A member of the RNA family "TPP riboswitch aptamer (THI element)" from Streptomyces sp. NRRL F-5122, 112 nucleotides long. It scores 68 bits against the family's covariance model. About the family: Vitamin B(1) in its active form thiamin pyrophosphate (TPP) is an essential coenzyme that is synthesised by coupling of pyrimidine and thiazole moieties in bacteria.
RNA sequence: UAAAGCACUCGCGGGAGCCCGGACGCACCGGGCUGAGAGGGAGGCUGGCGGCCUCCGACCGUACGAACCUGAUCCGGGUCAUGCCGGCGAAGGGAGGGGGCUCGACGCCCAU
Numbered sequence: 001u002a003a004a005g006c007a008c009u010c011g012c013g014g015g016a017g018c019c020c021g022g023a024c025g026c027a028c029c030g031g032g033c034u035g036a037g038a039g040g041g042a043g044g045c046u047g048g049c050g051g052c053c054u055c056c057g058a059c060c061g062u063a064c065g066a067a068c069c070u071g072a073u074c075c076g077g078g079u080c081a082u083g084c085c086g087g088c089g090a091a092g093g094g095a096g097g098g099g100g101c102u103c104g105a106c107g108c109c110c111a112u
Base pairs, nucleotide, nucleotide: 006100008098009097010096011062012061013060014059017033018032019031020030021029040056041055042054043053044052045051046050068093069092070091074087075086076085077084